[Rfam]
RNA: mir-9229 microRNA precursor family
RNA sequence: GAGACACCCUUAUGAGGCAAGACUUACUUCAGUGGAGCUCUGGCACUCACUGAGUCUGCCCCCUGAGUGUGUCUCU
Numbered sequence: 001g002a003g004a005c006a007c008c009c010u011u012a013u014g015a016g017g018c019a020a021g022a023c024u025u026a027c028u029u030c031a032g033u034g035g036a037g038c039u040c041u042g043g044c045a046c047u048c049a050c051u052g053a054g055u056c057u058g059c060c061c062c063c064u065g066a067g068u069g070u071g072u073c074u075c076u
Stems, first nucleotide, its partner, number of pairs: 001075007009067004014062001016060004021056003029053007037044002
Dot-bracket structure: (((((((.((((.(.((((.(((.....(((((((.((....))..)))))))))))))).).)))).))))))).